[Rfam]
Nucleotides: 201
Base pairs, nucleotide, nucleotide: 018052020051021050022049023048031043032042033041034040053193054192055191056190063110064109065108066107067102068101069100070099071098072097075096077094079092080091117189118188119187120186121185126179127178128177129176130175131151132150133149138146139145155174156173157172158171159170160169161168162167
Number, partner (000 for none) and nucleotide at each position: 001000u002000a003000g004000a005000a006000c007000u008000c009000u010000u011000a012000u013000u014000c015000u016000u017000a018052g019000a020051u021050g022049u023048g024000g025000g026000a027000u028000g029000a030000a031043g032042g033041g034040g035000u036000a037000a038000c039000g040034c041033c042032c043031u044000g045000a046000a047000a048023c049022g050021c051020a052018c053193c054192u055191u056190u057000a058000a059000u060000a061000c062000u063110u064109c065108g066107a067102c068101a069100a070099g071098c072097a073000g074000a075096u076000a077094a078000a079092g080091g081000u082000a083000a084000g085000c086000a087000a088000a089000u090000g091080c092079c093000c094077u095000a096075a097072u098071g099070u100069u101068u102067g103000a104000a105000g106000c107066u108065c109064g110063g111000u112000g113000a114000a115000g116000u117189c118188g119187g120186c121185u122000g123000a124000g125000a126179a127178u128177g129176g130175g131151c132150c133149u134000a135000a136000c137000a138146g139145g140000u141000c142000a143000u144000g145139c146138u147000g148000u149133a150132g151131g152000a153000a154000a155174g156173c157172u158171g159170u160169c161168c162167a163000g164000a165000g166000g167162u168161g169160g170159g171158u172157a173156g174155u175130c176129c177128c178127a179126u180000c181000u182000a183000u184000a185121g186120g187119u188118c189117g190056g191055a192054a193053g194000u195000c196000c197000a198000u199000a200000a201000a